Purine riboswitch aptamer: a 102-nucleotide RNA from Cerasibacillus terrae. Lineage of the source: Bacteria > Bacillati > Bacilli > Bacillaceae > Cerasibacillus. A search with the family's covariance model found it, with a score of 76 bits.
[Rfam]
Nucleotides: 102
Stems, first nucleotide, its partner, number of pairs: 021085005029049007058078007
Number, partner (000 for none) and nucleotide at each position: 001000a002000a003000u004000u005000u006000a007000a008000u009000a010000u011000c012000a013000a014000u015000c016000a017000u018000a019000c020000c021085u022084c023083g024082u025081a026000u027000a028000a029049u030048c031047c032046u033045a034044g035043u036000a037000a038000u039000a040000u041000g042000g043035g044034c045033u046032g047031g048030g049029a050000g051000u052000u053000u054000c055000u056000a057000c058078a059077g060076a061075g062074u063073a064072a065000c066000c067000g068000u069000a070000a071000a072064u073063u074062a075061c076060u077059c078058u079000a080000c081025u082024a083023u084022g085021g086000a087000c088000g089000g090000u091000g092000c093000u094000g095000c096000a097000u098000g099000c100000c101000a102000a